[Rfam]
RNA sequence: AGCUUUGUGAAUCCGUUCAGAGAUUUCAUCAGACAACGAUCCAUUAGGACUGAUUAAACUUCCAAGAUAAGUGAAACU
Numbered sequence: 001a002g003c004u005u006u007g008u009g010a011a012u013c014c015g016u017u018c019a020g021a022g023a024u025u026u027c028a029u030c031a032g033a034c035a036a037c038g039a040u041c042c043a044u045u046a047g048g049a050c051u052g053a054u055u056a057a058a059c060u061u062c063c064a065a066g067a068u069a070a071g072u073g074a075a076a077c078u
Stems, first nucleotide, its partner, number of pairs: 002077001004075003008071001011068003016064001020061003024058003028054003
The record is a 78-nucleotide RNA sequence from Schistosoma haematobium, which matches "mir-3492 microRNA precursor family" in Rfam.
The organism belongs to Schistosoma, within Eukaryota.
The family's consensus secondary structure was predicted with RNAalifold.